[Rfam]
Nucleotides: 090
Stems, first nucleotide, its partner, number of pairs: 027083007038071001040069001042067003046062004
Number, partner (000 for none) and nucleotide at each position: 001000u002000g003000g004000c005000u006000g007000u008000a009000g010000a011000g012000a013000u014000a015000u016000g017000a018000a019000u020000a021000c022000a023000a024000u025000u026000g027083a028082g029081a030080a031079g032078u033077u034000u035000a036000c037000u038071g039000a040069u041000c042067g043066g044065u045000u046062g047061u048060u049059g050000u051000a052000a053000a054000u055000c056000u057000g058000u059049c060048g061047a062046c063000a064000u065044a066043u067042c068000u069040g070000c071038u072000u073000a074000c075000c076000g077033a078032a079031c080030u081029u082028u083027u084000a085000a086000c087000a088000u089000u090000u